Source information: Rfam assigns this 368-nucleotide sequence from Nocardioides antri to the family "Bacterial RNase P class A". Its family is annotated with tRNA processing, ribonuclease P activity and dimeric ribonuclease P complex in the Gene Ontology. Rfam classes the family as a ribozyme.
RNA sequence: CGGGCCGACCGGGUGACCGCGUGACGCGCCCCUGGAGACAGGGACGGGUCCCGAGGAAAGUCCGGGCUCCACAGAGCAGGGUGGUGGGUAACACCCACCCGGAGUGAUCCGCGGGACAGUGCCACAGAGAACAGACCGCCUCAUCCCCUCCAGGGAUGAGGUAAGGGUGAAACGGUGGGGUAAGAGCCCACCAGCGCCCCGGGCGACCGGGACGGCUCGGCAAACCCCACCCGGAGCAAGGCCAGACAGUGUGCGCCCGAGGGCUGCUCGCCCGAGCACACGGGUAGGCCGCUGGAGGUCGCCGGCAACGGCGGCCGUAGAUGGAUGGUCACCGACGACAGAACCCGGCUUACAGGUCGGCCCGUCCC
Numbered sequence: 001c002g003g004g005c006c007g008a009c010c011g012g013g014u015g016a017c018c019g020c021g022u023g024a025c026g027c028g029c030c031c032c033u034g035g036a037g038a039c040a041g042g043g044a045c046g047g048g049u050c051c052c053g054a055g056g057a058a059a060g061u062c063c064g065g066g067c068u069c070c071a072c073a074g075a076g077c078a079g080g081g082u083g084g085u086g087g088g089u090a091a092c093a094c095c096c097a098c099c100c101g102g103a104g105u106g107a108u109c110c111g112c113g114g115g116a117c118a119g120u121g122c123c124a125c126a127g128a129g130a131a132c133a134g135a136c137c138g139c140c141u142c143a144u145c146c147c148c149u150c151c152a153g154g155g156a157u158g159a160g161g162u163a164a165g166g167g168u169g170a171a172a173c174g175g176u177g178g179g180g181u182a183a184g185a186g187c188c189c190a191c192c193a194g195c196g197c198c199c200c201g202g203g204c205g206a207c208c209g210g211g212a213c214g215g216c217u218c219g220g221c222a223a224a225c226c227c228c229a230c231c232c233g234g235a236g237c238a239a240g241g242c243c244a245g246a247c248a249g250u251g252u253g254c255g256c257c258c259g260a261g262g263g264c265u266g267c268u269c270g271c272c273c274g275a276g277c278a279c280a281c282g283g284g285u286a287g288g289c290c291g292c293u294g295g296a297g298g299u300c301g302c303c304g305g306c307a308a309c310g311g312c313g314g315c316c317g318u319a320g321a322u323g324g325a326u327g328g329u330c331a332c333c334g335a336c337g338a339c340a341g342a343a344c345c346c347g348g349c350u351u352a353c354a355g356g357u358c359g360g361c362c363c364g365u366c367c368c
Stems, first nucleotide, its partner, number of pairs: 001364010011353001012333007020053002023050003027046002058351003062348005067236004074269004079232005084098005099113001100111004114227002119225002121221003136166002138162009174192006194216001195214002198211005240290004249281006261273004297316008